[Rfam]
RNA sequence: GCCGCUGUGCCAGAGUGGUUAAUGGGAUAGACUUGAACGAUUAUAUCUAUAAUCCGUCGAUAUCUAUUGCUUUCGAGCGCGUAGGUUCAAAUCCUGCCGGCGGCG
Numbered sequence: 001g002c003c004g005c006u007g008u009g010c011c012a013g014a015g016u017g018g019u020u021a022a023u024g025g026g027a028u029a030g031a032c033u034u035g036a037a038c039g040a041u042u043a044u045a046u047c048u049a050u051a052a053u054c055c056g057u058c059g060a061u062a063u064c065u066a067u068u069g070c071u072u073u074c075g076a077g078c079g080c081g082u083a084g085g086u087u088c089a090a091a092u093c094c095u096g097c098c099g100g101c102g103g104c105g
Stems, first nucleotide, its partner, number of pairs: 001104007010025003031063001081097005
Description
The family of this 105-nucleotide RNA from Lachnellula hyalina is "tRNA". A reference for the family is Hou (1993), "The tertiary structure of tRNA and the development of the genetic code", Trends Biochem Sci. The organism belongs to Lachnellula, within Eukaryota. Gene Ontology term of the family: triplet codon-amino acid adaptor activity. A search with the family's covariance model found it, with a score of 48 bits. By type it is a transfer RNA.